[Rfam]
A member of the RNA family "RNA Staph. aureus C" from Staphylococcus aureus, 440 nucleotides long. The source organism's lineage runs through Bacteria, Bacillota, Caryophanales, Staphylococcaceae and Staphylococcus aureus. The base pairs follow the family's consensus structure, which is taken from published work.
Nucleotides: 440
Base pairs, nucleotide, nucleotide: 001023002022003021004020005019006018007017025121026120027119028118029117039112040111041110042109043108044107045106046105047104048103049102050101051100055097056096057095058094072085073084074083075081076080144156145155146154147153170239171238172237173236175234176233177232178231179229180228181227182226192223193222194221195219196218197217198216199215200214201213203211241303242302243301244300245299246298247297251265252264253263254262266296267295268294269293270292271291272290273289274288276286277285310333311332312331334365335364336363337362338361339360340359341358342357343356369394370393371392372391373390374389375388376387400433401432402431403430404429405428406427407426408425409424410423411422
Number, partner (000 for none) and nucleotide at each position: 001023c002022a003021u004020c005019u006018c007017u008000u009000u010000u011000a012000a013000c014000c015000a016000c017007a018006g019005a020004g021003a022002u023001g024000c025121g026120u027119u028118a029117g030000a031000a032000g033000u034000u035000c036000u037000u038000c039112u040111a041110a042109u043108a044107c045106a046105a047104u048103u049102u050101a051100u052000a053000c054000a055097a056096c057095g058094c059000c060000a061000u062000u063000c064000c065000c066000u067000a068000c069000a070000c071000a072085c073084u074083c075081u076080u077000a078000u079000a080076a081075a082000a083074g084073a085072g086000a087000u088000u089000c090000a091000c092000g093000c094058g095057c096056g097055u098000c099000a100051a101050u102049a103048a104047a105046u106045u107044g108043u109042a110041u111040u112039a113000c114000a115000u116000a117029c118028u119027a120026a121025c122000u123000a124000a125000a126000a127000a128000g129000c130000u131000u132000u133000u134000c135000u136000u137000a138000a139000u140000c141000g142000u143000a144156c145155u146154a147153a148000c149000g150000a151000a152000g153147u154146u155145a156144g157000a158000g159000g160000u161000u162000c163000u164000u165000a166000u167000g168000u169000g170239a171238u172237u173236g174000g175234a176233c177232a178231a179229c180228u181227g182226u183000u184000c185000u186000c187000c188000c189000u190000a191000c192223u193222a194221g195219a196218c197217u198216u199215u200214u201213a202000g203211c204000a205000u206000a207000g208000c209000u210000g211203g212000u213201u214200a215199a216198a217197a218196g219195u220000a221194c222193u223192a224000u225000u226182a227181c228180a229179g230000a231178u232177u233176g234175u235000u236173c237172a238171a239170u240000u241303g242302u243301a244300u245299g246298c247297c248000c249000c250000u251265u252264u253263c254262c255000u256000u257000u258000g259000a260000a261000c262254g263253g264252a265251a266296u267295a268294u269293u270292a271291a272290a273289a274288g275000c276286u277285a278000u279000g280000u281000g282000c283000a284000g285277u286276a287000a288274c289273u290272u291271u292270u293269a294268a295267u296266a297247g298246g299245c300244a301243u302242a303241c304000c305000a306000c307000u308000u309000u310333u311332g312331c313000a314000u315000c316000a317000a318000g319000c320000u321000a322000u323000a324000a325000a326000u327000a328000a329000u330000c331312g332311c333310a334365u335364a336363c337362u338361u339360u340359g341358a342357u343356a344000u345000u346000u347000a348000a349000u350000c351000u352000g353000g354000c355000c356343u357342a358341u359340c360339a361338a362337a363336g364335u365334a366000a367000a368000c369394a370393u371392c372391u373390a374389u375388g376387g377000u378000u379000u380000c381000c382000u383000c384000c385000c386000c387376c388375c389374a390373u391372a392371g393370a394369u395000c396000c397000u398000u399000a400433a401432g402431c403430c404429a405428c406427a407426c408425u409424c410423a411422u412000c413000c414000g415000a416000u417000g418000u419000c420000a421000u422411a423410u424409g425408a426407g427406u428405g429404u430403g431402g432401c433400u434000a435000u436000u437000u438000u439000u440000u